[Rfam]
Description: The family of this 355-nucleotide part of an RNA from Elusimicrobium minutum is "Bacterial small subunit ribosomal RNA". The literature on the family includes a 2001 paper in Science by Yusupov et al., "Crystal structure of the ribosome at 5.5 A resolution". The family has 99 seed sequences and 42,628 matches in Rfam 15.1. The source organism's lineage runs through Bacteria, Elusimicrobiota, Elusimicrobiaceae, Elusimicrobium and Elusimicrobium minutum.
RNA sequence: GGCGUAAAGCGCGCGUAGGCGGAUUGUUAAGUCUGUUGUGUAAUCUCUGGGCCCAACCCAGAAACUGCAAUUGAAACUGGCGAUCUUGAGUGAGGCAGAGGAAAUCGGAAUUCCAAGUGUAGCAGUGAAAUGCGUAGAUAUUUGGAGGAACACCGGUGGCGAAGGCGGAUUUCUGGGCCUUUACUGACGCUGAAGUGCGAAAGCUAGGGGAGCAAACGGGAUUAGAUACCCCGGUAGUCCUAGCCGUAAACGAUGAUAACUAGGUGUGGGAGGUAUCGACCCCUUCCGUGCCGACGCUAACGCAUUAAGUUAUCCGCCUGGGGAGUACGGCCGCAAGGUUAAAACUCAAAGGAAU
Numbered sequence: 001g002g003c004g005u006a007a008a009g010c011g012c013g014c015g016u017a018g019g020c021g022g023a024u025u026g027u028u029a030a031g032u033c034u035g036u037u038g039u040g041u042a043a044u045c046u047c048u049g050g051g052c053c054c055a056a057c058c059c060a061g062a063a064a065c066u067g068c069a070a071u072u073g074a075a076a077c078u079g080g081c082g083a084u085c086u087u088g089a090g091u092g093a094g095g096c097a098g099a100g101g102a103a104a105u106c107g108g109a110a111u112u113c114c115a116a117g118u119g120u121a122g123c124a125g126u127g128a129a130a131u132g133c134g135u136a137g138a139u140a141u142u143u144g145g146a147g148g149a150a151c152a153c154c155g156g157u158g159g160c161g162a163a164g165g166c167g168g169a170u171u172u173c174u175g176g177g178c179c180u181u182u183a184c185u186g187a188c189g190c191u192g193a194a195g196u197g198c199g200a201a202a203g204c205u206a207g208g209g210g211a212g213c214a215a216a217c218g219g220g221a222u223u224a225g226a227u228a229c230c231c232c233g234g235u236a237g238u239c240c241u242a243g244c245c246g247u248a249a250a251c252g253a254u255g256a257u258a259a260c261u262a263g264g265u266g267u268g269g270g271a272g273g274u275a276u277c278g279a280c281c282c283c284u285u286c287c288g289u290g291c292c293g294a295c296g297c298u299a300a301c302g303c304a305u306u307a308a309g310u311u312a313u314c315c316g317c318c319u320g321g322g323g324a325g326u327a328c329g330g331c332c333g334c335a336a337g338g339u340u341a342a343a344a345c346u347c348a349a350a351g352g353a354a355u
Base pairs, nucleotide, nucleotide: 001318002317003316009315011198012197013196014195016192018191019190020189022085023084024083025082026081027080028079030078031077032074033073035071036070037069038068039067040066046062047061048060049059050058051057089185090184091183092181093180094179095178096177100174101173102172103171104170105169106168107151111147112146113145114144115143116142117141118140122133123132124131159166160165203244204243205242206241207240208239212238213237217233218232219231220230255314256313257312258311259310260309263292264291265290266289267288268287269286270285271284272283273282296303297302320347321346322345329340330339331338332337